Shown here is a 74-nucleotide RNA sequence from Chiloscyllium punctatum, a member of the family "mir-196 microRNA precursor family". Rfam links the family to the GO terms gene silencing by miRNA and RISC complex. On this family, see Lagos-Quintana et al., RNA 2003: "New microRNAs from mouse and human". The base pairs follow the family's consensus structure, which was predicted with PFOLD.
[Rfam]
RNA sequence: UGUGUGAUUUAGGUAGUUUCAUGUUGUUGGGGCUCAAGUCUAUCUCUACAACACGAAACUGCCUGAAUUACUGC
Numbered sequence: 001u002g003u004g005u006g007a008u009u010u011a012g013g014u015a016g017u018u019u020c021a022u023g024u025u026g027u028u029g030g031g032g033c034u035c036a037a038g039u040c041u042a043u044c045u046c047u048a049c050a051a052c053a054c055g056a057a058a059c060u061g062c063c064u065g066a067a068u069u070a071c072u073g074c
Base pairs, nucleotide, nucleotide: 004071005070006069007068008067009066010065011064012063013062014061015060016059017058018057019056022053023052024051025050026049027048029046030045031044